Record summary: The family of this 61-nucleotide RNA from Pristionchus pacificus is "mir-8364 microRNA precursor family". It scores 70 bits against the family's covariance model.

[Rfam]
RNA sequence: UCUUCAUUCCUCAUACUCUCUCAUCGGUCAGUGUGAUGAGAGAGUAGGUGAAAUGAGGAGA
Numbered sequence: 001u002c003u004u005c006a007u008u009c010c011u012c013a014u015a016c017u018c019u020c021u022c023a024u025c026g027g028u029c030a031g032u033g034u035g036a037u038g039a040g041a042g043a044g045u046a047g048g049u050g051a052a053a054u055g056a057g058g059a060g061a
Base pairs, nucleotide, nucleotide: 001059002058003057004056005055006054007053010050012048014046015045016044017043019041020040021039022038